[Rfam]
RNA sequence: AAAGCAGGUCUGCAAUUGCAGUGCUUCCUUUCAGUGGGAGUGGUGUCAUUAAUCCUGCUGAGAGUAAUCAAAUCAAUAUCAAAUUGUAUUUGUCACGUGCUGAAUACAAAAGGUGUAGAUCUUACAGUG
Numbered sequence: 001a002a003a004g005c006a007g008g009u010c011u012g013c014a015a016u017u018g019c020a021g022u023g024c025u026u027c028c029u030u031u032c033a034g035u036g037g038g039a040g041u042g043g044u045g046u047c048a049u050u051a052a053u054c055c056u057g058c059u060g061a062g063a064g065u066a067a068u069c070a071a072a073u074c075a076a077u078a079u080c081a082a083a084u085u086g087u088a089u090u091u092g093u094c095a096c097g098u099g100c101u102g103a104a105u106a107c108a109a110a111a112g113g114u115g116u117a118g119a120u121c122u123u124a125c126a127g128u129g
Base pairs, nucleotide, nucleotide: 003059004058005057006056007055008054019045020044022042023041024040025039026038027037070123071122072120073119074118076116077115078114079113080112085108086107087106088105089104090103091102092101094099